[Rfam]
RNA sequence: UUAUUGCGGUGAUGAAUUAUGAACAUUCGCAUGUCAGACUUCAGAGAUGCCUCUGGCUUCUAUGAGAUAACAUAUCAUAUUACUGAGCAAUAA
Numbered sequence: 001u002u003a004u005u006g007c008g009g010u011g012a013u014g015a016a017u018u019a020u021g022a023a024c025a026u027u028c029g030c031a032u033g034u035c036a037g038a039c040u041u042c043a044g045a046g047a048u049g050c051c052u053c054u055g056g057c058u059u060c061u062a063u064g065a066g067a068u069a070a071c072a073u074a075u076c077a078u079a080u081u082a083c084u085g086a087g088c089a090a091u092a093a
Stems, first nucleotide, its partner, number of pairs: 001093007046060002049057001
RNA: Small nucleolar RNA R64/Z200 family